[Rfam]
RNA sequence: CAGCGACAAGGGCAAACCCACCGUGAGGUGGGGACGCAAAGCCAACGGGACCCCCAGGGUCGGCCGGGCUCACCGAA
Numbered sequence: 001c002a003g004c005g006a007c008a009a010g011g012g013c014a015a016a017c018c019c020a021c022c023g024u025g026a027g028g029u030g031g032g033g034a035c036g037c038a039a040a041g042c043c044a045a046c047g048g049g050a051c052c053c054c055c056a057g058g059g060u061c062g063g064c065c066g067g068g069c070u071c072a073c074c075g076a077a
Stems, first nucleotide, its partner, number of pairs: 012037002017032006040070004046066003049061005
RNA: c-di-GMP-I riboswitch aptamer
Organism: Actinotalea ferrariae